[Rfam]
RNA: SAM riboswitch aptamer (S box leader)
Organism: Melghiribacillus thermohalophilus
RNA sequence: UUCUUAUCGAGAGAGGCGGAGGGACUGGCCCGAAGAAGCCCGGCAACCAUCAAGCAGCAGCGAGCUGUUUGAAACGGUGCCAAAUCCUGCAGAGCCUGAAGAUGGCUCUGGGAGAUGAGGA
Numbered sequence: 001u002u003c004u005u006a007u008c009g010a011g012a013g014a015g016g017c018g019g020a021g022g023g024a025c026u027g028g029c030c031c032g033a034a035g036a037a038g039c040c041c042g043g044c045a046a047c048c049a050u051c052a053a054g055c056a057g058c059a060g061c062g063a064g065c066u067g068u069u070u071g072a073a074a075c076g077g078u079g080c081c082a083a084a085u086c087c088u089g090c091a092g093a094g095c096c097u098g099a100a101g102a103u104g105g106c107u108c109u110g111g112g113a114g115a116u117g118a119g120g121a
Stems, first nucleotide, its partner, number of pairs: 001121008013041001015040003021031003025089001027087002042081004047077002050072008085113001090110006
Dot-bracket structure: ((((((((....(.(((...(((.[.[[)))......))))((((.((.((((((((.......))))))))...))))))...(]].]((((((.........))))))..)))))))))